[Rfam]
RNA: mir-193 microRNA precursor family
RNA sequence: AUCCAGAGUCGGGGUUUUGGGGGCGAGAUGAGCUGCCUGGUACCCAACUGGCCCACAAAGUCCCGCUUCUGGCC
Numbered sequence: 001a002u003c004c005a006g007a008g009u010c011g012g013g014g015u016u017u018u019g020g021g022g023g024c025g026a027g028a029u030g031a032g033c034u035g036c037c038u039g040g041u042a043c044c045c046a047a048c049u050g051g052c053c054c055a056c057a058a059a060g061u062c063c064c065g066c067u068u069c070u071g072g073c074c
Base pairs, nucleotide, nucleotide: 003072004071005070006069007068008067010065011064012063013062015060016059017058018057019056021054022053023052024051026049027048029046030045